[Rfam]
RNA: Streptomyces sRNA 4677
Organism: Streptomyces sp. YIM 121038
RNA sequence: UGACCCGGUCGGGCCCGACGCAAAGGAGAAAGAAGCCGGGGGAAGUACCCCCACGCCCCACCGCCCCCGCAGCUCACCCUCAAGGGUGAACAUCCCCAACUCGGCUGGCGCGUAGGGCAGUCGAUGGUGCAGCGUCGGCGCCGACAACCGCAGACAUGAAACGGCCCUCGCCUGGGCUGGCAUCCCACGGCGAGGGCCUGUUCACCGAGGAAGAGAAGAGCUUCCCG
Numbered sequence: 001u002g003a004c005c006c007g008g009u010c011g012g013g014c015c016c017g018a019c020g021c022a023a024a025g026g027a028g029a030a031a032g033a034a035g036c037c038g039g040g041g042g043a044a045g046u047a048c049c050c051c052c053a054c055g056c057c058c059c060a061c062c063g064c065c066c067c068c069g070c071a072g073c074u075c076a077c078c079c080u081c082a083a084g085g086g087u088g089a090a091c092a093u094c095c096c097c098a099a100c101u102c103g104g105c106u107g108g109c110g111c112g113u114a115g116g117g118c119a120g121u122c123g124a125u126g127g128u129g130c131a132g133c134g135u136c137g138g139c140g141c142c143g144a145c146a147a148c149c150g151c152a153g154a155c156a157u158g159a160a161a162c163g164g165c166c167c168u169c170g171c172c173u174g175g176g177c178u179g180g181c182a183u184c185c186c187a188c189g190g191c192g193a194g195g196g197c198c199u200g201u202u203c204a205c206c207g208a209g210g211a212a213g214a215g216a217a218g219a220g221c222u223u224c225c226c227g
Base pairs, nucleotide, nucleotide: 001204002203010069011068012067013066074089075088076087077086078085079084104139105138106137107136108135163198164197165196166195167194169192170191171190174185175184176183209225210224211223212222213221